TPP riboswitch aptamer (THI element): a 98-nucleotide RNA from Rhodoferax antarcticus. Its family is annotated with thiamine pyrophosphate binding in the Gene Ontology. Pairs were carried over by alignment from the consensus structure, which is taken from published work. The source organism's lineage runs through Bacteria, Pseudomonadati, Burkholderiales, Rhodoferax and Rhodoferax antarcticus.

RNA sequence: CCCCCCCGCUAGAGGUGCCGCCCGGUUGUGGUGGCUGAGAAAUACUCUUAGAACCUGAUCUGGGUCGUGCCAGCGUAGGAAAGCGUUUACAAGCGUGC
Number, nucleotide and partner (000 for none) at each position: 001c000002c000003c000004c000005c000006c000007c085008g084009c083010u082011a048012g047013a046014g045015g000016u042017g035018c034019c033020g032021c031022c000023c000024g000025g000026u000027u000028g000029u000030g000031g021032u020033g019034g018035c017036u000037g000038a000039g000040a000041a000042a016043u000044a000045c014046u013047c012048u011049u000050a000051g000052a000053a000054c079055c078056u077057g076058a000059u000060c073061u072062g071063g070064g000065u000066c000067g000068u000069g000070c063071c062072a061073g060074c000075g000076u057077a056078g055079g054080a000081a000082a010083g009084c008085g007086u000087u000088u000089a000090c000091a000092a000093g000094c000095g000096u000097g000098c000